A member of the RNA family "Purine riboswitch aptamer" from Diplocloster agilis, 97 nucleotides long. The base pairs follow the family's consensus structure, which is taken from published work.
[Rfam]
Nucleotides: 097
Base pairs, nucleotide, nucleotide: 018083019082020081021080022079023078024077025076029046030045031044032043055073056072057071058070059069060068
Number, partner (000 for none) and nucleotide at each position: 001000a002000c003000a004000a005000c006000u007000g008000a009000a010000u011000a012000a013000a014000g015000u016000a017000a018083a019082a020081c021080u022079u023078a024077u025076a026000u027000a028000u029046g030045u031044u032043c033000a034000u035000a036000a037000u038000u039000g040000g041000u042000u043032g044031a045030a046029c047000g048000u049000c050000u051000c052000u053000a054000c055073a056072a057071a058070c059069u060068a061000c062000c063000g064000u065000a066000a067000a068060u069059a070058g071057u072056u073055u074000u075000c076025u077024a078023u079022a080021a081020g082019u083018u084000u085000c086000c087000g088000u089000a090000c091000a092000g093000u094000c095000c096000u097000u